[Rfam]
RNA sequence: GGGCGUUGAAAGACAUGGGUAGUGAGACGUAUGAAUUUGGCAAUCGUGUCACUAUUCUGUUUUUCGCCGUCCU
Numbered sequence: 001g002g003g004c005g006u007u008g009a010a011a012g013a014c015a016u017g018g019g020u021a022g023u024g025a026g027a028c029g030u031a032u033g034a035a036u037u038u039g040g041c042a043a044u045c046g047u048g049u050c051a052c053u054a055u056u057c058u059g060u061u062u063u064u065c066g067c068c069g070u071c072c073u
Base pairs, nucleotide, nucleotide: 008065009064010063011062012061013060014059015058017057018056019055021053022052023051024050025049027047028046029045
Dot-bracket structure: .......((((((((.(((.(((((.(((...............))).))))).)))))))))))........